[Rfam]
RNA sequence: UCUUUAGUGAAGGAGAAAGGGGCUAGGUGGUGGGAUAGGUAACUGAGACUCAACGCCACAUGGCUCUGUCUUCUGCCUCAGA
Dot-bracket structure: (((..((.(.((((((..(((((((.((((((.....................)))))).))))))).)))))).))).)))
mir-7578 microRNA precursor family: an 82-nucleotide sequence from Mus musculus. Taxonomically the source falls in Mus (Eukaryota, Metazoa, Mammalia, Boreoeutheria). Rfam's curators put it in the seed alignment. Rfam 15.1 lists 8 matches to the family in 8 species.